The family of this 200-nucleotide sequence is "RAGATH-7 RNA". On this family, see Weinberg et al., Nat Chem Biol 2015: "New classes of self-cleaving ribozymes revealed by comparative genomics analysis". By type it is a small RNA.

[Rfam]
RNA sequence: GCUAUACCGCUUUAUUAUGCACAAAUAAAGUUAAAGAUUGUAUAGUAAUCCACGUGGUAGAGGCACAGUUAGGUUCGCUGUGGUGCAACUCUUAUUAGUAACUAAUCCAAAGCAAGUAUAGGAGAACAGGUUUUUAACUAUUUUUAGGCAGAUAAAAAAUAGUAUUUGACAGUCUAACACUAACUGAACAAUAAGUGUUA
Numbered sequence: 001g002c003u004a005u006a007c008c009g010c011u012u013u014a015u016u017a018u019g020c021a022c023a024a025a026u027a028a029a030g031u032u033a034a035a036g037a038u039u040g041u042a043u044a045g046u047a048a049u050c051c052a053c054g055u056g057g058u059a060g061a062g063g064c065a066c067a068g069u070u071a072g073g074u075u076c077g078c079u080g081u082g083g084u085g086c087a088a089c090u091c092u093u094a095u096u097a098g099u100a101a102c103u104a105a106u107c108c109a110a111a112g113c114a115a116g117u118a119u120a121g122g123a124g125a126a127c128a129g130g131u132u133u134u135u136a137a138c139u140a141u142u143u144u145u146a147g148g149c150a151g152a153u154a155a156a157a158a159a160u161a162g163u164a165u166u167u168g169a170c171a172g173u174c175u176a177a178c179a180c181u182a183a184c185u186g187a188a189c190a191a192u193a194a195g196u197g198u199u200a
Stems, first nucleotide, its partner, number of pairs: 001046007009038001011029005059092004064082006106123003113168005137163007175200007
Dot-bracket structure: (((((((.(.(((((.........)))))........).)))))))............((((.((((((.......))))))......)))).............[[[....(((((...]]].............(((((((.............))))))))))))......(((((((............)))))))